[Rfam]
RNA sequence: AUAAGGGAGGCCUAAAAAGGCUUCCCUUUUUAAAUUUUUAAUCCAGGCAGGAGUUCGCCUGCCUGGACUGGGAGAGGAGAAAUUGAAGGAAGAAUUGGGGAAAUUUCUAUUCCCGUUA
Numbered sequence: 001a002u003a004a005g006g007g008a009g010g011c012c013u014a015a016a017a018a019g020g021c022u023u024c025c026c027u028u029u030u031u032a033a034a035u036u037u038u039u040a041a042u043c044c045a046g047g048c049a050g051g052a053g054u055u056c057g058c059c060u061g062c063c064u065g066g067a068c069u070g071g072g073a074g075a076g077g078a079g080a081a082a083u084u085g086a087a088g089g090a091a092g093a094a095u096u097g098g099g100g101a102a103a104u105u106u107c108u109a110u111u112c113c114c115g116u117u118a
Stems, first nucleotide, its partner, number of pairs: 005026009042072005047062005084115002089112003094108001